[Rfam]
RNA sequence: AAGAGCCUCGAGUCAAUAAAGACUGAGAAGAUUGACUCAAGC
Dot-bracket structure: ......((.((((((((.............)))))))).)).
RNA: Plastid-rpl16 group II-D1 intron